This 194-nucleotide RNA from Miscanthus lutarioriparius belongs to the Rfam family "MIR6217 microRNA precursor family". Its family is annotated with RISC complex and miRNA-mediated post-transcriptional gene silencing in the Gene Ontology.
[Rfam]
RNA sequence: AUUCUGUAGCCACUUUGAGUUACGCUAAUUACUAUGUUAAUUUAUAAAAUUAUAGUAACUCCUUACUAAGUGUUUUACUAUAACGUUAUGGUAAAUAUCUCCAUGUGUUAUAGUAACCCAACUAUCGUAAAUAUGUAUUAAUAUUAUCGUAAAUUAGUAUAUAAAAUUAUCGUAAAUGAAGUUGGCUACAAAAU
Number, nucleotide and partner (000 for none) at each position: 001a194002u193003u192004c000005u190006g189007u188008a187009g186010c185011c184012a183013c000014u181015u180016u179017g000018a000019g000020u175021u174022a173023c172024g171025c000026u169027a168028a167029u166030u165031a000032c000033u161034a160035u159036g158037u157038u156039a155040a154041u153042u152043u151044a150045u149046a000047a000048a000049a147050u146051u000052a144053u143054a142055g000056u000057a138058a000059c000060u000061c000062c000063u130064u129065a128066c127067u000068a000069a000070g125071u124072g123073u000074u121075u120076u115077a114078c113079u112080a111081u110082a109083a108084c107085g106086u105087u000088a000089u000090g100091g099092u000093a000094a000095a000096u000097a000098u000099c091100u090101c000102c000103a000104u000105g086106u085107g084108u083109u082110a081111u080112a079113g078114u077115a076116a000117c000118c000119c000120a075121a074122c000123u072124a071125u070126c000127g066128u065129a064130a063131a000132u000133a000134u000135g000136u000137a000138u057139u000140a000141a000142u054143a053144u052145u000146a050147u049148c000149g045150u044151a043152a042153a041154u040155u039156a038157g037158u036159a035160u034161a033162u000163a000164a000165a030166a029167u028168u027169a026170u000171c024172g023173u022174a021175a020176a000177u000178g000179a016180a015181g014182u000183u012184g011185g010186c009187u008188a007189c006190a005191a000192a003193a002194u001